Eukaryotic large subunit ribosomal RNA: a 580-nucleotide part of an RNA from Donacobius atricapilla. Rfam links the family to the GO terms structural constituent of ribosome and ribosome. NCBI's taxonomy places the organism under Eukaryota, Tetrapoda, Neoaves, Mimidae, Donacobius. The literature on the family includes a 2001 paper in Science by Yusupov et al., "Crystal structure of the ribosome at 5.5 A resolution".
RNA sequence: ACAUUGAAAGCGGUGUGCCGGUGUUUCUAGCCAGGGCCAGUCUAAGUUGACCUCUGUGUUUGGAAGGAAACAUACAUUAACUCAGGCAACUGUGUGAAAAGGCUUGUGAACAAAAUUGUAGACCCAGGAUUGGUUAUCAAUAUGUGGGGGCAAGCCUGGACGUGACGCCAACUGCCACACUGGAAGCUCCGUGAUGGUCACAACCCAGAGGUGCUCAAACGGUGGAGUUGUGCUACGUUGUACCAGAGCCCAUCAUGACUUCAGUUGCAAACUGGGCUGUCUUGAAGGGCACAGGCAGUCAUGCCAUCCAGGGCCAUGUCACCUGUAGUGCAUCUAGUUACACCCAAGUCCAAAGACAAACCAGACUCUUGGUGGGAUUCUCACUUCCAUGCGCCGUGUGGCCAUGUGGCACAAGCAUGUUGCUGUCCAAAUUUCCAUCUCAAACAGACAAAACUACUGAUUUCGACCUUGGUGGACAGCCACCGUUAGUUAACCUGCAAAAGGAGAGACAUGCGAGGGUAUGCUCAUUAAAUAGCCAAAUGCCUUGUCAUCUAAUUAGUGACGCGCAUGAAUGGAUGAA
Numbered sequence: 001a002c003a004u005u006g007a008a009a010g011c012g013g014u015g016u017g018c019c020g021g022u023g024u025u026u027c028u029a030g031c032c033a034g035g036g037c038c039a040g041u042c043u044a045a046g047u048u049g050a051c052c053u054c055u056g057u058g059u060u061u062g063g064a065a066g067g068a069a070a071c072a073u074a075c076a077u078u079a080a081c082u083c084a085g086g087c088a089a090c091u092g093u094g095u096g097a098a099a100a101g102g103c104u105u106g107u108g109a110a111c112a113a114a115a116u117u118g119u120a121g122a123c124c125c126a127g128g129a130u131u132g133g134u135u136a137u138c139a140a141u142a143u144g145u146g147g148g149g150g151c152a153a154g155c156c157u158g159g160a161c162g163u164g165a166c167g168c169c170a171a172c173u174g175c176c177a178c179a180c181u182g183g184a185a186g187c188u189c190c191g192u193g194a195u196g197g198u199c200a201c202a203a204c205c206c207a208g209a210g211g212u213g214c215u216c217a218a219a220c221g222g223u224g225g226a227g228u229u230g231u232g233c234u235a236c237g238u239u240g241u242a243c244c245a246g247a248g249c250c251c252a253u254c255a256u257g258a259c260u261u262c263a264g265u266u267g268c269a270a271a272c273u274g275g276g277c278u279g280u281c282u283u284g285a286a287g288g289g290c291a292c293a294g295g296c297a298g299u300c301a302u303g304c305c306a307u308c309c310a311g312g313g314c315c316a317u318g319u320c321a322c323c324u325g326u327a328g329u330g331c332a333u334c335u336a337g338u339u340a341c342a343c344c345c346a347a348g349u350c351c352a353a354a355g356a357c358a359a360a361c362c363a364g365a366c367u368c369u370u371g372g373u374g375g376g377a378u379u380c381u382c383a384c385u386u387c388c389a390u391g392c393g394c395c396g397u398g399u400g401g402c403c404a405u406g407u408g409g410c411a412c413a414a415g416c417a418u419g420u421u422g423c424u425g426u427c428c429a430a431a432u433u434u435c436c437a438u439c440u441c442a443a444a445c446a447g448a449c450a451a452a453a454c455u456a457c458u459g460a461u462u463u464c465g466a467c468c469u470u471g472g473u474g475g476a477c478a479g480c481c482a483c484c485g486u487u488a489g490u491u492a493a494c495c496u497g498c499a500a501a502a503g504g505a506g507a508g509a510c511a512u513g514c515g516a517g518g519g520u521a522u523g524c525u526c527a528u529u530a531a532a533u534a535g536c537c538a539a540a541u542g543c544c545u546u547g548u549c550a551u552c553u554a555a556u557u558a559g560u561g562a563c564g565c566g567c568a569u570g571a572a573u574g575g576a577u578g579a580a
Stems, first nucleotide, its partner, number of pairs: 547563005